This 68-nucleotide RNA from Nitrosospira multiformis belongs to the Rfam family "int-alpA RNA". The organism belongs to Nitrosospira multiformis, within Bacteria. Rfam's curators write: Acidobacteria (1 example), Planctomycetes (1 example), Proteobacteria.

RNA sequence: GCCACCCCUAUCCAGGCCAGGAGAAAAACGGAAACCUUCACCGCCUGGGGUGGCAACCAAUUUGAAGG
Numbered sequence: 001g002c003c004a005c006c007c008c009u010a011u012c013c014a015g016g017c018c019a020g021g022a023g024a025a026a027a028a029c030g031g032a033a034a035c036c037u038u039c040a041c042c043g044c045c046u047g048g049g050g051u052g053g054c055a056a057c058c059a060a061u062u063u064g065a066a067g068g
Stems, first nucleotide, its partner, number of pairs: 001054008011022003029043003035068006